[Rfam]
RNA sequence: CACACGAAAAGGCAAACCUUUUGAAAAAAAGGGACGCAAAGCUAUGGGUCUAAGGGACUUCUAUCCUAUGACUGCCAAGCUACCGAA
Numbered sequence: 001c002a003c004a005c006g007a008a009a010a011g012g013c014a015a016a017c018c019u020u021u022u023g024a025a026a027a028a029a030a031g032g033g034a035c036g037c038a039a040a041g042c043u044a045u046g047g048g049u050c051u052a053a054g055g056g057a058c059u060u061c062u063a064u065c066c067u068a069u070g071a072c073u074g075c076c077a078a079g080c081u082a083c084c085g086a087a
Stems, first nucleotide, its partner, number of pairs: 012037002017032006040081004045077003048072003055066003
Description: Rfam assigns this 87-nucleotide sequence from Cohnella lupini to the family "c-di-GMP-I riboswitch aptamer". The organism belongs to Cohnella, within Bacteria. Gene Ontology term of the family: cyclic-di-GMP binding. The match comes from Rfam's covariance-model search (88 bits).